[Rfam]
RNA sequence: GAAUCGCAGUAAUGAAUUAUGGCAAACUUCGCAUGUCAUACUUCAGUGAUACUGGUAUCAACGAGAGUAUACUAAUUUUUCAAAAGCCUUUU
Numbered sequence: 001g002a003a004u005c006g007c008a009g010u011a012a013u014g015a016a017u018u019a020u021g022g023c024a025a026a027c028u029u030c031g032c033a034u035g036u037c038a039u040a041c042u043u044c045a046g047u048g049a050u051a052c053u054g055g056u057a058u059c060a061a062c063g064a065g066a067g068u069a070u071a072c073u074a075a076u077u078u079u080u081c082a083a084a085a086g087c088c089u090u091u092u
Stems, first nucleotide, its partner, number of pairs: 001092003006087002048059004
The family of this 92-nucleotide sequence from Carex littledalei is "Small nucleolar RNA R64/Z200 family".
Lineage of the source: Eukaryota > Spermatophyta > Poales > Carex > Carex subgen. Euthyceras.
Its family is annotated with nucleolus and RNA processing in the Gene Ontology.
The family's RNA type in Rfam is C/D-box small nucleolar RNA.